[Rfam]
RNA sequence: CAGACCCUGCCAAACCGAAGUCUAACGCUCCGCGUCAGAUAGUAAUUAGGUGCGGUGGGGUUUA
Numbered sequence: 001c002a003g004a005c006c007c008u009g010c011c012a013a014a015c016c017g018a019a020g021u022c023u024a025a026c027g028c029u030c031c032g033c034g035u036c037a038g039a040u041a042g043u044a045a046u047u048a049g050g051u052g053c054g055g056u057g058g059g060g061u062u063u064a
Stems, first nucleotide, its partner, number of pairs: 002063010014051003020040004025035004
RNA: DUF3800-VIII RNA